[Rfam]
RNA: Fluoride riboswitch aptamer (crcB RNA motif)
Organism: Mycobacterium sherrisii
RNA sequence: UCGCUGACAGGUGAUGAGGCUCACCUUCAACCGCCAUACGGCUAAUGGCUUCUACCCACUG
Numbered sequence: 001u002c003g004c005u006g007a008c009a010g011g012u013g014a015u016g017a018g019g020c021u022c023a024c025c026u027u028c029a030a031c032c033g034c035c036a037u038a039c040g041g042c043u044a045a046u047g048g049c050u051u052c053u054a055c056c057c058a059c060u061g
Stems, first nucleotide, its partner, number of pairs: 010025004016052006033042003